[Rfam]
RNA sequence: ACAGUCUGAAAAUCACUUGGGGUCUCCUGUUGCCCCUGGUGUGAUAUCUGUGCCGACAGCAGAGGGAGCAUUAAACUCAUUGGCCAUGGGAAAGUGUGGGGAGCGAUACCCAUGUUCCUAUAAUG
Dot-bracket structure: .....(.(((...(((....(((........)))....)))...).)).)..............(.(((((.....((.((...(((........)))...)).)).....))))).).......

This 125-nucleotide RNA from Bucco capensis belongs to the Rfam family "Small nucleolar RNA ACA64".
Taxonomically the source falls in Bucco (Eukaryota, Craniata, Euteleostomi, Saurischia).
The literature on the family includes a 2006 paper in RNA by Schattner et al., "A computational screen for mammalian pseudouridylation guide H/ACA RNAs".
Pairs were carried over by alignment from the consensus structure, which was predicted with WAR.
Rfam 15.1 lists 9,537 matches to the family in 620 species.